[Rfam]
RNA: Streptomyces sRNA scr5239
Organism: Streptomyces sp. So13.3
RNA sequence: CCUCCAUCCUCCCCGCACAGGAGGGUGGAUCGAGGCCAGGCGUUCUCUGCCCUGACUACGCCGUGGCCUCACCGGUCGGCCCUAACGGGCCACGGGGAACCGCACACCCCGUCGGCCACGGCGUCGACAGCAGCUCCGGGCUGCGGUGCUGGAAGGGCUGAGGGUCCCUUCCCGGCGC
Numbered sequence: 001c002c003u004c005c006a007u008c009c010u011c012c013c014c015g016c017a018c019a020g021g022a023g024g025g026u027g028g029a030u031c032g033a034g035g036c037c038a039g040g041c042g043u044u045c046u047c048u049g050c051c052c053u054g055a056c057u058a059c060g061c062c063g064u065g066g067c068c069u070c071a072c073c074g075g076u077c078g079g080c081c082c083u084a085a086c087g088g089g090c091c092a093c094g095g096g097g098a099a100c101c102g103c104a105c106a107c108c109c110c111g112u113c114g115g116c117c118a119c120g121g122c123g124u125c126g127a128c129a130g131c132a133g134c135u136c137c138g139g140g141c142u143g144c145g146g147u148g149c150u151g152g153a154a155g156g157g158c159u160g161a162g163g164g165u166c167c168c169u170u171c172c173c174g175g176c177g178c
Base pairs, nucleotide, nucleotide: 003029004028005027006026008024009023010022011021012020032070033069034068035067036066038064039062040061042059043058044055045054076127077126078125079124080123082121133147134146135145137143138142151172152171153170154169155168156167157166